[Rfam]
RNA sequence: CCUUUGGACUGUUAUAGCAAACAAAAGUAGUAUGCUUUAUUACGAAAUUGGACAGGUUGAAUAAGGAA
Numbered sequence: 001c002c003u004u005u006g007g008a009c010u011g012u013u014a015u016a017g018c019a020a021a022c023a024a025a026a027g028u029a030g031u032a033u034g035c036u037u038u039a040u041u042a043c044g045a046a047a048u049u050g051g052a053c054a055g056g057u058u059g060a061a062u063a064a065g066g067a068a
Stems, first nucleotide, its partner, number of pairs: 001066004009055005022050003030043003
RNA: RAGATH-18 RNA